[Rfam]
RNA sequence: AUAAAAGCUGUGAUAGAGAGAGUAGACUUUUAAGUACUUUACAGAGAGUUGGGUUAGGUGAAAGCCAAUAUUUAUGAGAAAGUUGAAAAUCACUCUGGAGCUGUAGGCUGAACGAUUUUAUCUAUUAAGCUGAGCCGGUUAGUGCCGUUAAACUAUAGAGUGUUACAUAUUAUUUAUUUUAAUAUGUAAAAUUAGGGUGGUAACGCGAUUAUAACUCGUCCCUUUG
Numbered sequence: 001a002u003a004a005a006a007g008c009u010g011u012g013a014u015a016g017a018g019a020g021a022g023u024a025g026a027c028u029u030u031u032a033a034g035u036a037c038u039u040u041a042c043a044g045a046g047a048g049u050u051g052g053g054u055u056a057g058g059u060g061a062a063a064g065c066c067a068a069u070a071u072u073u074a075u076g077a078g079a080a081a082g083u084u085g086a087a088a089a090u091c092a093c094u095c096u097g098g099a100g101c102u103g104u105a106g107g108c109u110g111a112a113c114g115a116u117u118u119u120a121u122c123u124a125u126u127a128a129g130c131u132g133a134g135c136c137g138g139u140u141a142g143u144g145c146c147g148u149u150a151a152a153c154u155a156u157a158g159a160g161u162g163u164u165a166c167a168u169a170u171u172a173u174u175u176a177u178u179u180u181a182a183u184a185u186g187u188a189a190a191a192u193u194a195g196g197g198u199g200g201u202a203a204c205g206c207g208a209u210u211a212u213a214a215c216u217c218g219u220c221c222c223u224u225u226g
Stems, first nucleotide, its partner, number of pairs: 007101002015096004025084006039070001048069005104133001106131004136147003163189010194223004205219004
RNA: T-box leader